[Rfam]
RNA sequence: UAUGGAUCAGUGAUGUUAAUUUCAAACUGCGUUAUCUAUCUGAAACUUCCUAAAGGAAUUGAAGAUAACCAUAACUUACUGAGAUCCAAU
Numbered sequence: 001u002a003u004g005g006a007u008c009a010g011u012g013a014u015g016u017u018a019a020u021u022u023c024a025a026a027c028u029g030c031g032u033u034a035u036c037u038a039u040c041u042g043a044a045a046c047u048u049c050c051u052a053a054a055g056g057a058a059u060u061g062a063a064g065a066u067a068a069c070c071a072u073a074a075c076u077u078a079c080u081g082a083g084a085u086c087c088a089a090u
Stems, first nucleotide, its partner, number of pairs: 003088005
RNA: Small nucleolar RNA snoR27
Organism: Abrus precatorius